Notes: Shown here is a 100-nucleotide RNA sequence from Desulfosporosinus sp. Sb-LF, a member of the family "Purine riboswitch aptamer". The family's consensus secondary structure is taken from published work.
RNA sequence: GUGAAUAGUCUAAAGUAUACUCAUAUAUCCUUGAUAAUUGGAUCAAGGGUUUCUACGAGGCAACCGUAAUUGCUUCUCUAUGAGCCAGGAAUGGUUUAUG
Numbered sequence: 001g002u003g004a005a006u007a008g009u010c011u012a013a014a015g016u017a018u019a020c021u022c023a024u025a026u027a028u029c030c031u032u033g034a035u036a037a038u039u040g041g042a043u044c045a046a047g048g049g050u051u052u053c054u055a056c057g058a059g060g061c062a063a064c065c066g067u068a069a070u071u072g073c074u075u076c077u078c079u080a081u082g083a084g085c086c087a088g089g090a091a092u093g094g095u096u097u098a099u100g
Stems, first nucleotide, its partner, number of pairs: 020084006029048007057076007

The organism belongs to Desulfosporosinus, within Bacteria.